[Rfam]
mir-708 microRNA precursor family: an 88-nucleotide RNA sequence from Equus caballus. Clan: mir-28 clan.

RNA sequence: AACUGCCCUCAAGGAGCUUACAAUCUAGCUGGGGGUAAAUGACUUGCACAUGAACGCAACUAGACUGUGAGCUUCUAGAGGGCAGGGG
Numbered sequence: 001a002a003c004u005g006c007c008c009u010c011a012a013g014g015a016g017c018u019u020a021c022a023a024u025c026u027a028g029c030u031g032g033g034g035g036u037a038a039a040u041g042a043c044u045u046g047c048a049c050a051u052g053a054a055c056g057c058a059a060c061u062a063g064a065c066u067g068u069g070a071g072c073u074u075c076u077a078g079a080g081g082g083c084a085g086g087g088g
Base pairs, nucleotide, nucleotide: 003085004084005083006082007081008080009079010078012076013075014074015073016072017071018070019069020068021067022066024064025063026062027061028060030048031047033045034044035043036042
Overview
A reference for the family is Lui et al. (2007), "Patterns of known and novel small RNAs in human cervical cancer", Cancer Res. The base pairs follow the family's consensus structure, which was predicted with RNAalifold.